[Rfam]
RNA: Alphaproteobacteria transfer-messenger RNA
Nucleotides: 350
Stems, first nucleotide, its partner, number of pairs: 040051004055187005065180002067176004079165002083162003089105005106147007188203004194213002197211003316331004322347006
Number, partner (000 for none) and nucleotide at each position: 001000a002000c003000g004000c005000u006000u007000g008000a009000u010000c011000c012000g013000g014000c015000g016000g017000c018000c019000g020000g021000a022000g023000a024000g025000g026000c027000c028000u029000a030000c031000c032000u033000u034000u035000g036000g037000g038000u039000c040051g041050u042049c043048c044000u045000u046000c047000g048043g049042g050041a051040c052000u053000a054000u055187g056186g057185a058184c059183a060000u061000a062000a063000a064000c065180g066179c067176g068175c069174c070173c071000g072000c073000a074000a075000u076000a077000a078000g079165c080164g081000g082000c083162u084161c085160g086000g087000a088000c089105c090104c091103g092102g093101g094000g095000g096000c097000g098000g099000u100000a101093c102092c103091c104090g105089g106147c107146g108145g109144c110143u111142c112141c113000a114000c115000c116000a117000g118000a119000c120000a121000c122000c123000c124000u125000u126000c127000g128000u129000u130000g131000g132000g133000g134000g135000g136000a137000c138000a139000g140000c141112g142111g143110g144109g145108c146107c147106g148000a149000a150000a151000u152000a153000g154000g155000a156000u157000c158000g159000a160085c161084g162083a163000a164080c165079g166000u167000c168000u169000a170000a171000a172000g173070g174069g175068g176067u177000a178000u179066g180065c181000u182000u183059u184058g185057u186056c187055c188203c189202g190201g191200u192000g193000a194213g195212g196000u197211a198210c199209c200191a201190c202189c203188g204000u205000u206000a207000u208000c209199g210198g211197u212195c213194c214000g215000a216000a217000a218000c219000g220000c221000a222000u223000a224000g225000u226000u227000g228000c229000c230000a231000a232000c233000g234000a235000c236000a237000a238000c239000a240000a241000u242000g243000c244000u245000c246000c247000g248000g249000u250000c251000g252000c253000g254000c255000u256000c257000g258000c259000u260000g261000c262000g263000u264000a265000a266000g267000c268000a269000g270000u271000g272000c273000g274000c275000a276000a277000a278000g279000c280000c281000g282000a283000a284000a285000u286000c287000u288000a289000a290000g291000c292000c293000c294000u295000u296000g297000c298000g299000c300000c301000u302000a303000g304000c305000a306000g307000c308000g309000u310000a311000a312000g313000g314000c315000g316331g317330g318329g319328u320000u321000c322347g323346c324345a325344g326343g327342c328319a329318c330317c331316u332000g333000g334000c335000a336000a337000c338000a339000g340000a341000a342327g343326c344325c345324u346323g347322c348000a349000c350000u